The record is a 117-nucleotide RNA sequence from Gordonia malaquae, which matches "SAM (S-adenosyl methionine) riboswitch aptamer" in Rfam.
Rfam's curators write: SAM-IV is a mRNA element that regulates gene expression via direct sensing of S-adenosylmethionine (SAM or AdoMet). SAM-IV riboswitches share conserved nucleotide positions with the previously described SAM-I riboswitches sequence analysis and molecular recognition experiments suggest that SAM-I and SAM-IV riboswitches share similar ligand binding sites, but have different scaffolds.
The family's consensus secondary structure is taken from published work.
The literature on the family includes a 2008 paper in RNA by Weinberg et al., "The aptamer core of SAM-IV riboswitches mimics the ligand-binding site of SAM-I riboswitches".
RNA sequence: GGUUACGAGCGUCAGCGACAAGCCCUGGCUUGCUGGCCGGCAACCCUCCACUGUGCGGCGGGGUGCUCCAGGUGAGAACCCGACCGUGCGCUCCCUGCGCCUCGGUAAGCGCAAACC
Numbered sequence: 001g002g003u004u005a006c007g008a009g010c011g012u013c014a015g016c017g018a019c020a021a022g023c024c025c026u027g028g029c030u031u032g033c034u035g036g037c038c039g040g041c042a043a044c045c046c047u048c049c050a051c052u053g054u055g056c057g058g059c060g061g062g063g064u065g066c067u068c069c070a071g072g073u074g075a076g077a078a079c080c081c082g083a084c085c086g087u088g089c090g091c092u093c094c095c096u097g098c099g100c101c102u103c104g105g106u107a108a109g110c111g112c113a114a115a116c117c
Base pairs, nucleotide, nucleotide: 001080002079003078004077009038011037012036013035014034015033016032021030022029039067040066041065044063045062046061048058049057083106084105085104086103088100089099090098091097